[Rfam]
RNA sequence: ACUCAACGUUACACUUUUGAAAAGGGUGAGUUCAAGUUGCUAAAGCGGGCCGUCUUCGAACGGAUACUUGACCAGCUUAUUAGCCCUAAACUUGUUUUUAUGGAGUUU
Numbered sequence: 001a002c003u004c005a006a007c008g009u010u011a012c013a014c015u016u017u018u019g020a021a022a023a024g025g026g027u028g029a030g031u032u033c034a035a036g037u038u039g040c041u042a043a044a045g046c047g048g049g050c051c052g053u054c055u056u057c058g059a060a061c062g063g064a065u066a067c068u069u070g071a072c073c074a075g076c077u078u079a080u081u082a083g084c085c086c087u088a089a090a091c092u093u094g095u096u097u098u099u100a101u102g103g104a105g106u107u108u
Base pairs, nucleotide, nucleotide: 023087024086025085026084027083034078035077036076037075038074043069044068045067050063051062052061053060
The record is a 108-nucleotide RNA sequence from Ulvibacter antarcticus, which matches "6S-Flavo RNA" in Rfam.
A search with the family's covariance model found it, with a score of 102 bits.
The family's consensus secondary structure is taken from published work.
The family's RNA type in Rfam is small RNA.
Lineage of the source: Bacteria > Pseudomonadati > Bacteroidota > Flavobacteriales > Ulvibacter.